[Rfam]
RNA sequence: UGCUUCUCAUGAGCUCCUCUCUGUCAAUCCAGUGGCAGUGUAUGGAUUCGCACGAGAAGUAGAGCGAAAUCACAGCUAAACAGGUGGUUCCACUAUAUUGGGAUAUACCCAUGUCUGAUGUGAGACAUUA
Numbered sequence: 001u002g003c004u005u006c007u008c009a010u011g012a013g014c015u016c017c018u019c020u021c022u023g024u025c026a027a028u029c030c031a032g033u034g035g036c037a038g039u040g041u042a043u044g045g046a047u048u049c050g051c052a053c054g055a056g057a058a059g060u061a062g063a064g065c066g067a068a069a070u071c072a073c074a075g076c077u078a079a080a081c082a083g084g085u086g087g088u089u090c091c092a093c094u095a096u097a098u099u100g101g102g103a104u105a106u107a108c109c110c111a112u113g114u115c116u117g118a119u120g121u122g123a124g125a126c127a128u129u130a
Base pairs, nucleotide, nucleotide: 003059004058005057006056007055008054013051014050015046016045017044021038022037023036024035025034070123071122072121073120074119087104088103089102090101091100092099
RNA: Small nucleolar RNA SNORA75
Organism: Sinocyclocheilus anshuiensis